This 69-nucleotide sequence from Salvelinus namaycush belongs to the Rfam family "miR-430 microRNA precursor family". The family's consensus secondary structure was predicted with RNAalifold. The literature on the family includes a 2005 paper in Science by Giraldez et al., "MicroRNAs regulate brain morphogenesis in zebrafish". Rfam 15.1 lists 24,817 matches to the family in 105 species.
[Rfam]
RNA sequence: AACAGCAACCUAACAAAAGCAUUGACUGGUUUCUUUUUGCAGUAAGUGCUUUUUGUUGGGUAUCUGUUA
Numbered sequence: 001a002a003c004a005g006c007a008a009c010c011u012a013a014c015a016a017a018a019g020c021a022u023u024g025a026c027u028g029g030u031u032u033c034u035u036u037u038u039g040c041a042g043u044a045a046g047u048g049c050u051u052u053u054u055g056u057u058g059g060g061u062a063u064c065u066g067u068u069a
Base pairs, nucleotide, nucleotide: 004065005064008061009060010059011058013056014055015054016053017052018050019049020048021047022046023045025043026042027041